[Rfam]
RNA sequence: GCCAGGCCGACUAAGGAGCGUCGGCCGCGUCGCUACGGUGACGCAGCCCGUCUUGCCCCGGAGUCCGCUUCGGGGUGCAUUGCCAUGCCAUGUCAUUUCUGCCGGAUCGGUGCCGAUCCGGCAGCUUUUGUAACAGCGUGACCGGGUGAUGACAGUUUCCGUCACGCGCGACUUGUUAAAAUACUGAUAAUCUCAGCGGGCCAGGCAGUCGAUUCAGCGUCUGUCUGCAUUGUUCAGCCAGACUUCGCAUAUGACCCAGCAACGCACGCUCAAGAACACCAUUCGCGCCACCGGCGUCGGCCUGCAUAGCGGCGACAAGGUGU
Numbered sequence: 001g002c003c004a005g006g007c008c009g010a011c012u013a014a015g016g017a018g019c020g021u022c023g024g025c026c027g028c029g030u031c032g033c034u035a036c037g038g039u040g041a042c043g044c045a046g047c048c049c050g051u052c053u054u055g056c057c058c059c060g061g062a063g064u065c066c067g068c069u070u071c072g073g074g075g076u077g078c079a080u081u082g083c084c085a086u087g088c089c090a091u092g093u094c095a096u097u098u099c100u101g102c103c104g105g106a107u108c109g110g111u112g113c114c115g116a117u118c119c120g121g122c123a124g125c126u127u128u129u130g131u132a133a134c135a136g137c138g139u140g141a142c143c144g145g146g147u148g149a150u151g152a153c154a155g156u157u158u159c160c161g162u163c164a165c166g167c168g169c170g171a172c173u174u175g176u177u178a179a180a181a182u183a184c185u186g187a188u189a190a191u192c193u194c195a196g197c198g199g200g201c202c203a204g205g206c207a208g209u210c211g212a213u214u215c216a217g218c219g220u221c222u223g224u225c226u227g228c229a230u231u232g233u234u235c236a237g238c239c240a241g242a243c244u245u246c247g248c249a250u251a252u253g254a255c256c257c258a259g260c261a262a263c264g265c266a267c268g269c270u271c272a273a274g275a276a277c278a279c280c281a282u283u284c285g286c287g288c289c290a291c292c293g294g295c296g297u298c299g300g301c302c303u304g305c306a307u308a309g310c311g312g313c314g315a316c317a318a319g320g321u322g323u
Stems, first nucleotide, its partner, number of pairs: 001313003004303008016052002023048003027044007055076009077265002087131002099124011136167007144157002170184001186209001188203001191200002214254002217248003223243005287295003304310002
Shown here is a 323-nucleotide RNA from Xanthomonas oryzae, a member of the family "Proteobacterial sRNA Xoo8". The family's consensus secondary structure was predicted with CMfinder. On this family, see Liang et al., BMC Genomics 2011: "Identification and functional characterization of small non-coding RNAs in Xanthomonas oryzae pathovar oryzae". Rfam's curators put it in the seed alignment. Taxonomically the source falls in Xanthomonas oryzae pv. oryzae (Bacteria, Pseudomonadota, Lysobacterales, Xanthomonas oryzae).